[Rfam]
RNA sequence: UAAGCAGACCUAUCUUAUCGACUUACAGCAAAUGUAAGUAGGAAAGUCUGGACACCAUAGAGUAGCAUAGCGGAUAACAUCCGUCCGGUGUAAACCGAGGACAAGUGCAACAGAAAGUAUGUACAGGUAAUGCUGUAGUGAAACCAGGUAAACUCUAUGCGGUGCAAUGCCAUGUACAUUAGAGCUCGAGCGCUACUCGCGCGAUUCUAAGGGGUAGGCAGAUUGAUUCCGUUAGUAAUUUCGGAACUAGAUAAAUGAUAAGAGCCUCAUUUUUGAGGAACAGAAUCCAGCUUAUGGGUCUGCUUUUUUU
Numbered sequence: 001u002a003a004g005c006a007g008a009c010c011u012a013u014c015u016u017a018u019c020g021a022c023u024u025a026c027a028g029c030a031a032a033u034g035u036a037a038g039u040a041g042g043a044a045a046g047u048c049u050g051g052a053c054a055c056c057a058u059a060g061a062g063u064a065g066c067a068u069a070g071c072g073g074a075u076a077a078c079a080u081c082c083g084u085c086c087g088g089u090g091u092a093a094a095c096c097g098a099g100g101a102c103a104a105g106u107g108c109a110a111c112a113g114a115a116a117g118u119a120u121g122u123a124c125a126g127g128u129a130a131u132g133c134u135g136u137a138g139u140g141a142a143a144c145c146a147g148g149u150a151a152a153c154u155c156u157a158u159g160c161g162g163u164g165c166a167a168u169g170c171c172a173u174g175u176a177c178a179u180u181a182g183a184g185c186u187c188g189a190g191c192g193c194u195a196c197u198c199g200c201g202c203g204a205u206u207c208u209a210a211g212g213g214g215u216a217g218g219c220a221g222a223u224u225g226a227u228u229c230c231g232u233u234a235g236u237a238a239u240u241u242c243g244g245a246a247c248u249a250g251a252u253a254a255a256u257g258a259u260a261a262g263a264g265c266c267u268c269a270u271u272u273u274u275g276a277g278g279a280a281c282a283g284a285a286u287c288c289a290g291c292u293u294a295u296g297g298g299u300c301u302g303c304u305u306u307u308u309u310u
Base pairs, nucleotide, nucleotide: 002305003304004303005302006301007300008299009298010297012295013263014262015261016260017259018258019257021039022038023037024036025035026034027033044293045292046291048290049289050288051287052286053164054163055162056161060198061197062196063195065160066159067158068157069156070084071083072082073081074080085099086097087096088095089094100155101154105153106152107149108148122137123136124135125134126133168220169219170218171217179210180209181208182207183206190202191201192200193199227246228245229244230243231242234239
A member of the RNA family "Bacterial RNase P class A" from Tenacibaculum lutimaris, 310 nucleotides long. Ribonuclease P (RNase P) is a ubiquitous endoribonuclease, found in archaea, bacteria and eukarya as well as chloroplasts and mitochondria. The organism belongs to Tenacibaculum, within Bacteria. By type it is a ribozyme.